[Rfam]
This 301-nucleotide RNA from Handroanthus impetiginosus belongs to the Rfam family "Plant signal recognition particle RNA". Its Rfam clan is "SRP clan". The base pairs follow the family's consensus structure, which is taken from published work. The match comes from Rfam's covariance-model search (108 bits).
RNA sequence: GCCAAGCUCAAUUACGUGGGCCUAUAACCAAGUAGAGAUACUAGUGUGAUUGGGCAUAGAGCUUGUCUAACUAGUUAGGUCAAAGUGUGGCUGCAUUCUGGCAAUGCUCAUUUCAAGUGGAGAAUUGGGUCUAGGGUCUAAGUAAAGGUUUGAACUUAUGGCCUAUAGAGGGGGGCAUCGCAUCAGGCUAGUUAAACAGAGCAUUGAAAACCUCCCACUCUCUAUAGUGGAAGAUAACUGGCUGGUGCCUCCUUUUCCCUUGAAAACUAGAUGGACUAGUUUUAAUUGGACAAGUUUUCAU
Numbered sequence: 001g002c003c004a005a006g007c008u009c010a011a012u013u014a015c016g017u018g019g020g021c022c023u024a025u026a027a028c029c030a031a032g033u034a035g036a037g038a039u040a041c042u043a044g045u046g047u048g049a050u051u052g053g054g055c056a057u058a059g060a061g062c063u064u065g066u067c068u069a070a071c072u073a074g075u076u077a078g079g080u081c082a083a084a085g086u087g088u089g090g091c092u093g094c095a096u097u098c099u100g101g102c103a104a105u106g107c108u109c110a111u112u113u114c115a116a117g118u119g120g121a122g123a124a125u126u127g128g129g130u131c132u133a134g135g136g137u138c139u140a141a142g143u144a145a146a147g148g149u150u151u152g153a154a155c156u157u158a159u160g161g162c163c164u165a166u167a168g169a170g171g172g173g174g175g176c177a178u179c180g181c182a183u184c185a186g187g188c189u190a191g192u193u194a195a196a197c198a199g200a201g202c203a204u205u206g207a208a209a210a211c212c213u214c215c216c217a218c219u220c221u222c223u224a225u226a227g228u229g230g231a232a233g234a235u236a237a238c239u240g241g242c243u244g245g246u247g248c249c250u251c252c253u254u255u256u257c258c259c260u261u262g263a264a265a266a267c268u269a270g271a272u273g274g275a276c277u278a279g280u281u282u283u284a285a286u287u288g289g290a291c292a293a294g295u296u297u298u299c300a301u
Stems, first nucleotide, its partner, number of pairs: 001039001003037001004023001006021005028035001044301003048297002050293003055288002057285001059283001060281004065276001067274003071270006078259002082255004087251001089249002092247002098245005104239001106238001109233001111232005117225007125217001129162003134157004139152005163168001170215005181206002188199002